[Rfam]
RNA sequence: CCAGGCGGCCGGGCGAUCGCGGCGGGCAUCUGCCCGGCGAGGAAAGUCCGGGCUCCACGAAACGACGGUGCCGGAUAACGUCCGGCGGCCUCGCGCAAGCGGGGUUAGGGAAAGUGCAACAGAGAGCAGGUCACGAAGGCUUCGGCCCCGUGAACAGUGAAAGGGUGCGGUAAGAGCGCACCGCGCGCCCGGUAACGGGAGCGGCAUGGUAAACCCCACCGGGAGCAAGACCGAAUAGGGGCGGCGCGCGGUUCGCUGCAGGGCAUGUUUCGGCCCAGUCGCCCGGGUUGGUUGCUUGAGGCCCGCAGCAAUGCGUGCCCUAGAGGAAUGAUCGCCCAUCCGGCCGAGCGUCCGCAAGGAUACGGCGGCAGGUGGACAGAACCCGGCUUACAGGCCGCCUGGCGUU
Numbered sequence: 001c002c003a004g005g006c007g008g009c010c011g012g013g014c015g016a017u018c019g020c021g022g023c024g025g026g027c028a029u030c031u032g033c034c035c036g037g038c039g040a041g042g043a044a045a046g047u048c049c050g051g052g053c054u055c056c057a058c059g060a061a062a063c064g065a066c067g068g069u070g071c072c073g074g075a076u077a078a079c080g081u082c083c084g085g086c087g088g089c090c091u092c093g094c095g096c097a098a099g100c101g102g103g104g105u106u107a108g109g110g111a112a113a114g115u116g117c118a119a120c121a122g123a124g125a126g127c128a129g130g131u132c133a134c135g136a137a138g139g140c141u142u143c144g145g146c147c148c149c150g151u152g153a154a155c156a157g158u159g160a161a162a163g164g165g166u167g168c169g170g171u172a173a174g175a176g177c178g179c180a181c182c183g184c185g186c187g188c189c190c191g192g193u194a195a196c197g198g199g200a201g202c203g204g205c206a207u208g209g210u211a212a213a214c215c216c217c218a219c220c221g222g223g224a225g226c227a228a229g230a231c232c233g234a235a236u237a238g239g240g241g242c243g244g245c246g247c248g249c250g251g252u253u254c255g256c257u258g259c260a261g262g263g264c265a266u267g268u269u270u271c272g273g274c275c276c277a278g279u280c281g282c283c284c285g286g287g288u289u290g291g292u293u294g295c296u297u298g299a300g301g302c303c304c305g306c307a308g309c310a311a312u313g314c315g316u317g318c319c320c321u322a323g324a325g326g327a328a329u330g331a332u333c334g335c336c337c338a339u340c341c342g343g344c345c346g347a348g349c350g351u352c353c354g355c356a357a358g359g360a361u362a363c364g365g366c367g368g369c370a371g372g373u374g375g376a377c378a379g380a381a382c383c384c385g386g387c388u389u390a391c392a393g394g395c396c397g398c399c400u401g402g403c404g405u406u
Stems, first nucleotide, its partner, number of pairs: 001402010011391001012336007020039002023036005044389003048386005053225004061270002066221005071085005086108001087106008109216002114214002116210002131156001132152004138147003164182006183205001184203003188199004229293004239284006261276004300319003304315004

Description:
Rfam assigns this 406-nucleotide sequence from Sphingobium sp. to the family "Bacterial RNase P class A". About the family: Ribonuclease P (RNase P) is a ubiquitous endoribonuclease, found in archaea, bacteria and eukarya as well as chloroplasts and mitochondria. It is annotated as a ribozyme.